[Rfam]
RNA sequence: GCCGUCAAAAUGCUUAAUCCUGACUUUACAGGAGCGGAGGAACCAUUUUUUUGAGGCGGAUCGCUUUUGGCGUAAGGCAACCUCUUCGGCCCGAGCCCUUCAGCUAACUUCGCAGGCUUCGAUGAGGAGACCC
Numbered sequence: 001g002c003c004g005u006c007a008a009a010a011u012g013c014u015u016a017a018u019c020c021u022g023a024c025u026u027u028a029c030a031g032g033a034g035c036g037g038a039g040g041a042a043c044c045a046u047u048u049u050u051u052u053g054a055g056g057c058g059g060a061u062c063g064c065u066u067u068u069g070g071c072g073u074a075a076g077g078c079a080a081c082c083u084c085u086u087c088g089g090c091c092c093g094a095g096c097c098c099u100u101c102a103g104c105u106a107a108c109u110u111c112g113c114a115g116g117c118u119u120c121g122a123u124g125a126g127g128a129g130a131c132c133c
Stems, first nucleotide, its partner, number of pairs: 012117003018033005034113006044053002055097002062072004076091003
This 133-nucleotide sequence from Smithella sp. F21 belongs to the Rfam family "c-di-AMP riboswitch aptamer (ydaO/yuaA leader)". It scores 78 bits against the family's covariance model. Taxonomically the source falls in Smithella (Bacteria, Pseudomonadati, Syntrophales, Smithellaceae).